RNA sequence: AUCACACGGAAAGAGGCUCUUCUUGAUGCGGCUGGCGGUCCUCGGCACAGCAUCUUGCGGCGAUUUCGACCUUGCUAUGUUUAUGACGACGGGGUGUAUUUGGGCAUGUUUGAGAUGCGGGCGUUGGGCGAGUUGCGGGCGUGAUAUCCCAUGGGAUUUAAUGACCAUGUUCACGGAGCGAUUUUCCGCCAACUGUAGUGUGUCUGAUGAGACUUGUUGUUCGAAUCGCGGCAGAAUCGGGACCCAUCUCGAGUUGGAGUCAAAGUUUUGUACUUGUCCGGUUCUGAUUGUGGCUCUUGCGGCCCUUCUCAUCAAGGCAGCUUCAGGAAGGUGUCGCGCUCUAAGAUCAGGUCUGUAUUAGGAAAGGGACCGGGCUCGUGAAGAGCAGUCCUGACCGCUCUCUCUUCAGAAACGGCGAGAGAGCGGUCCCUUUUUUUU
Numbered sequence: 001a002u003c004a005c006a007c008g009g010a011a012a013g014a015g016g017c018u019c020u021u022c023u024u025g026a027u028g029c030g031g032c033u034g035g036c037g038g039u040c041c042u043c044g045g046c047a048c049a050g051c052a053u054c055u056u057g058c059g060g061c062g063a064u065u066u067c068g069a070c071c072u073u074g075c076u077a078u079g080u081u082u083a084u085g086a087c088g089a090c091g092g093g094g095u096g097u098a099u100u101u102g103g104g105c106a107u108g109u110u111u112g113a114g115a116u117g118c119g120g121g122c123g124u125u126g127g128g129c130g131a132g133u134u135g136c137g138g139g140c141g142u143g144a145u146a147u148c149c150c151a152u153g154g155g156a157u158u159u160a161a162u163g164a165c166c167a168u169g170u171u172c173a174c175g176g177a178g179c180g181a182u183u184u185u186c187c188g189c190c191a192a193c194u195g196u197a198g199u200g201u202g203u204c205u206g207a208u209g210a211g212a213c214u215u216g217u218u219g220u221u222c223g224a225a226u227c228g229c230g231g232c233a234g235a236a237u238c239g240g241g242a243c244c245c246a247u248c249u250c251g252a253g254u255u256g257g258a259g260u261c262a263a264a265g266u267u268u269u270g271u272a273c274u275u276g277u278c279c280g281g282u283u284c285u286g287a288u289u290g291u292g293g294c295u296c297u298u299g300c301g302g303c304c305c306u307u308c309u310c311a312u313c314a315a316g317g318c319a320g321c322u323u324c325a326g327g328a329a330g331g332u333g334u335c336g337c338g339c340u341c342u343a344a345g346a347u348c349a350g351g352u353c354u355g356u357a358u359u360a361g362g363a364a365a366g367g368g369a370c371c372g373g374g375c376u377c378g379u380g381a382a383g384a385g386c387a388g389u390c391c392u393g394a395c396c397g398c399u400c401u402c403u404c405u406u407c408a409g410a411a412a413c414g415g416c417g418a419g420a421g422a423g424c425g426g427u428c429c430c431u432u433u434u435u436u437u438u
Stems, first nucleotide, its partner, number of pairs: 241261003244257003263275004